[Rfam]
RNA: Small nucleolar RNA R64/Z200 family
RNA sequence: CUUCUGCUGUGAUGAUUUAUGAAGAAAAUUCACAUGUCAGACUUCAGAGAUUUUCUAUGAGAACAACAACUCAUGAUUCCUGAGCAGAAG
Numbered sequence: 001c002u003u004c005u006g007c008u009g010u011g012a013u014g015a016u017u018u019a020u021g022a023a024g025a026a027a028a029u030u031c032a033c034a035u036g037u038c039a040g041a042c043u044u045c046a047g048a049g050a051u052u053u054u055c056u057a058u059g060a061g062a063a064c065a066a067c068a069a070c071u072c073a074u075g076a077u078u079c080c081u082g083a084g085c086a087g088a089a090g
Stems, first nucleotide, its partner, number of pairs: 001090007049055002